[Rfam]
RNA sequence: UUCGUUUGCCCUCCUUGGGCGUUUCCUCCCUAGACUUGGGCCGCCACGCAAGUGCGCGGCCCUUUUUUUCGUUGCC
Number, nucleotide and partner (000 for none) at each position: 001u000002u000003c000004g000005u000006u000007u000008g020009c019010c018011c017012u000013c000014c000015u000016u000017g011018g010019g009020c008021g000022u000023u000024u000025c000026c000027u000028c000029c000030c000031u000032a000033g000034a000035c000036u000037u000038g000039g061040g060041c059042c058043g057044c056045c054046a053047c052048g000049c000050a000051a000052g047053u046054g045055c000056g044057c043058g042059g041060c040061c039062c000063u000064u000065u000066u000067u000068u000069u000070c000071g000072u000073u000074g000075c000076c000
The record is a 76-nucleotide RNA from Allobosea lathyri, which matches "Makes More Granules Regulator RNA (mmgR)" in Rfam. It scores 66 bits against the family's covariance model. By type it is a small RNA. Its Rfam clan is "suhB sRNA clan". NCBI's taxonomy places the organism under Bacteria, Pseudomonadati, Pseudomonadota, Hyphomicrobiales, Allobosea.